About this RNA:
Rfam assigns this 139-nucleotide RNA from Geotrypetes seraphini to the family "Small nucleolar RNA SNORA8".
[Rfam]
RNA sequence: UGCGCUGGAUGGUAUCUGCACCCAGCAGCAUCUUCUGAUGGAGUGUUCAUAAAGCAGCGCUAGAAUAAGUCAGCAUCUGGCAUCGUUGGUUCUCAGGCGUCCAGUGUCUGUUAUACCUGGUUUUUCUGCUGAUACAUUC
Numbered sequence: 001u002g003c004g005c006u007g008g009a010u011g012g013u014a015u016c017u018g019c020a021c022c023c024a025g026c027a028g029c030a031u032c033u034u035c036u037g038a039u040g041g042a043g044u045g046u047u048c049a050u051a052a053a054g055c056a057g058c059g060c061u062a063g064a065a066u067a068a069g070u071c072a073g074c075a076u077c078u079g080g081c082a083u084c085g086u087u088g089g090u091u092c093u094c095a096g097g098c099g100u101c102c103a104g105u106g107u108c109u110g111u112u113a114u115a116c117c118u119g120g121u122u123u124u125u126c127u128g129c130u131g132a133u134a135c136a137u138u139c
Base pairs, nucleotide, nucleotide: 002060003059004058005057006056007055015053017051018046019045020044021043023041024039026037027036028035064127067124068123069122070120071119072118073117079108080107081106082105083104
Its family is annotated with nucleolus and RNA processing in the Gene Ontology. About the family: ACA8 is a member of the H/ACA class of snoRNA that guide the sites of modification of uridines to pseudouridines. Pairs were carried over by alignment from the consensus structure, which was predicted with RNAfold. It scores 80 bits against the family's covariance model.